[Rfam]
RNA sequence: GGUAUCUUGGCCGAGCGGUCGAAGGCGAUCGACUCAAGAUCGAUUCUACGAAAGUGGGCGAGGGUUCGAAUCCCUCAGAUACCA
Dot-bracket structure: (((((((..(((...........))).(((((.......)))))...............(((((.......)))))))))))).
RNA: tRNA
Organism: Spraguea lophii